Overview
The record is a 149-nucleotide RNA sequence from Pseudomonas asplenii, which matches "radC RNA" in Rfam. A search with the family's covariance model found it, with a score of 70 bits.

RNA sequence: UUCAUUGUGAGAGGGCAUACCGCUGACCUCGUCAGCACCUUGCCGAUGUAGCUUGGAUCCGAAGGGCUACGCUACGCCAUUGCGUAGGGUCCGCCCCCAGGUCGCAGCGCUUCCAGUCAUGCGACCAAUCGACCUGCGUCGAUGGAAGC
Numbered sequence: 001u002u003c004a005u006u007g008u009g010a011g012a013g014g015g016c017a018u019a020c021c022g023c024u025g026a027c028c029u030c031g032u033c034a035g036c037a038c039c040u041u042g043c044c045g046a047u048g049u050a051g052c053u054u055g056g057a058u059c060c061g062a063a064g065g066g067c068u069a070c071g072c073u074a075c076g077c078c079a080u081u082g083c084g085u086a087g088g089g090u091c092c093g094c095c096c097c098c099a100g101g102u103c104g105c106a107g108c109g110c111u112u113c114c115a116g117u118c119a120u121g122c123g124a125c126c127a128a129u130c131g132a133c134c135u136g137c138g139u140c141g142a143u144g145g146a147a148g149c
Stems, first nucleotide, its partner, number of pairs: 012041003022036006048070006056092001059089001072087006121149002128143006